[Rfam]
RNA sequence: UCACCAUCCCGAGCGGCCGAGAGACCUGGCUCUACGACGUCGCAGCAACCGAACCCUUUCCAUGGGAGCGGUGCUCACGCCAGGAUCGAUGGAGG
Numbered sequence: 001u002c003a004c005c006a007u008c009c010c011g012a013g014c015g016g017c018c019g020a021g022a023g024a025c026c027u028g029g030c031u032c033u034a035c036g037a038c039g040u041c042g043c044a045g046c047a048a049c050c051g052a053a054c055c056c057u058u059u060c061c062a063u064g065g066g067a068g069c070g071g072u073g074c075u076c077a078c079g080c081c082a083g084g085a086u087c088g089a090u091g092g093a094g095g
Stems, first nucleotide, its partner, number of pairs: 001095002004092005013043005021032003026083004044075004049071002054066003079087001

Annotation:
Shown here is a 95-nucleotide RNA, a member of the family "SAM riboswitch aptamer (S box leader)". Clan: SAM clan. A search with the family's covariance model found it, with a score of 52 bits. The base pairs follow the family's consensus structure, which is taken from published work.